[Rfam]
Nucleotides: 121
Stems, first nucleotide, its partner, number of pairs: 002120007013059005038048003043091003060084004065080002068076003088113001093110006
Number, partner (000 for none) and nucleotide at each position: 001000g002120c003119c004118u005117u006116a007115u008114c009000c010000a011000g012000a013059g014058c015057a016056g017055c018000g019000g020000a021000c022000a023000g024000g025000g026000c027000a028000a029000c030000u031000g032000c033000c034000c035000g036000a037000c038048g039047g040046g041000a042000a043091c044090g045089g046040c047039c048038c049000g050000a051000u052000g053000a054000a055017g056016c057015u058014g059013c060084g061083g062082c063081a064000a065080c066079c067000u068076g069075c070074c071000a072000a073000a074070g075069g076068c077000a078000a079066g080065g081063u082062g083061c084060c085000a086000a087000u088113u089045c090044c091043g092000g093110c094109c095108c096107g097106g098105c099000c100000u101000c102000u103000g104000c105098g106097c107096c108095g109094g110093g111000a112000a113088a114008g115007a116006u117005a118004a119003g120002g121000g
The family of this 121-nucleotide RNA from Meiothermus ruber is "SAM riboswitch aptamer (S box leader)". Rfam links the family to the GO term regulation of gene expression. Taxonomically the source falls in Meiothermus ruber (Bacteria, Thermotogati, Deinococcota, Meiothermus). The SAM riboswitch is found upstream of a number of genes which code for proteins involved in methionine or cysteine biosynthesis in Gram-positive bacteria. It is one of the family's seed sequences. The base pairs follow the family's consensus structure, which is taken from published work.